[Rfam]
RNA sequence: ACGGUCUCACGUAACUGGCGAAAAACUAGCUGGCGCUUGCGCUGCUGGUGAGAGGUGGGCAACCACCGGGGAACGUGAGAUACAUCAAUCAGCCGUUCGCCUGGGCAGCCACG
Numbered sequence: 001a002c003g004g005u006c007u008c009a010c011g012u013a014a015c016u017g018g019c020g021a022a023a024a025a026c027u028a029g030c031u032g033g034c035g036c037u038u039g040c041g042c043u044g045c046u047g048g049u050g051a052g053a054g055g056u057g058g059g060c061a062a063c064c065a066c067c068g069g070g071g072a073a074c075g076u077g078a079g080a081u082a083c084a085u086c087a088a089u090c091a092g093c094c095g096u097u098c099g100c101c102u103g104g105g106c107a108g109c110c111a112c113g
Base pairs, nucleotide, nucleotide: 004081005080006079007078008077009076010075011074012073015070016069017101018100019099020098021097055066056065057064058063090108092106093105094104

This 113-nucleotide RNA sequence from Duganella sp. Root198D2 belongs to the Rfam family "ZMP/ZTP riboswitch aptamer (pfl RNA motif)". Taxonomically the source falls in Duganella (Bacteria, Pseudomonadota, Betaproteobacteria, Oxalobacteraceae). Rfam links the family to the GO terms regulation of purine nucleotide biosynthetic process and one-carbon metabolic process.